A member of the RNA family "c-di-AMP riboswitch aptamer (ydaO/yuaA leader)" from Luteimicrobium subarcticum, 192 nucleotides long. Taxonomically the source falls in Luteimicrobium (Bacteria, Bacillati, Actinomycetes, Micrococcales). It scores 54 bits against the family's covariance model.
[Rfam]
RNA sequence: GUGUGGGGAACGCCGAACCCUGUCACCCCGCACGGGUCCCAGCGAGACGACGACGACAGGGGCGGGGGACCCACGACCGGGGGUCGUCAGACCUCCUCGGGGUGAAGCCGGAAGUACCGCAAGGUGCCAAGGCCGGGUGACUCUCCCAUUCGAACCCGACAGCUGACUUCGCAGGCGUCAUAGGAGACACGA
Numbered sequence: 001g002u003g004u005g006g007g008g009a010a011c012g013c014c015g016a017a018c019c020c021u022g023u024c025a026c027c028c029c030g031c032a033c034g035g036g037u038c039c040c041a042g043c044g045a046g047a048c049g050a051c052g053a054c055g056a057c058a059g060g061g062g063c064g065g066g067g068g069a070c071c072c073a074c075g076a077c078c079g080g081g082g083g084u085c086g087u088c089a090g091a092c093c094u095c096c097u098c099g100g101g102g103u104g105a106a107g108c109c110g111g112a113a114g115u116a117c118c119g120c121a122a123g124g125u126g127c128c129a130a131g132g133c134c135g136g137g138u139g140a141c142u143c144u145c146c147c148a149u150u151c152g153a154a155c156c157c158g159a160c161a162g163c164u165g166a167c168u169u170c171g172c173a174g175g176c177g178u179c180a181u182a183g184g185a186g187a188c189a190c191g192a
Stems, first nucleotide, its partner, number of pairs: 011177004018061007062172006072099001100157003108132002135151004
For this family Rfam cites "New RNA motifs suggest an expanded scope for riboswitches in bacterial genetic control" (Barrick et al., Proc Natl Acad Sci U S A, 2004).